[Rfam]
Rfam assigns this 66-nucleotide sequence from Varanus komodoensis to the family "MAT2A 3'UTR stem loop F". Taxonomically the source falls in Varanus (Eukaryota, Sarcopterygii, Tetrapoda, Anguimorpha). For this family Rfam cites "New families of human regulatory RNA structures identified by comparative analysis of vertebrate genomes" (Parker et al., Genome Res, 2011). The family's RNA type in Rfam is cis-regulatory element. It scores 83 bits against the family's covariance model.

RNA sequence: CUUGGGAGGGGCUAACUUGGCUGGUGUUGUACAGAGAAGCCAGCUUGUUUACCUGCCCGUCCCAUG
Number, nucleotide and partner (000 for none) at each position: 001c066002u000003u064004g063005g062006g061007a060008g000009g058010g057011g056012c055013u000014a049015a048016c047017u000018u000019g045020g044021c043022u042023g041024g040025u039026g032027u031028u000029g000030u000031a027032c026033a000034g000035a000036g000037a000038a000039g025040c024041c023042a022043g021044c020045u019046u000047g016048u015049u014050u000051a000052c000053c000054u000055g012056c011057c010058c009059g000060u007061c006062c005063c004064a003065u000066g001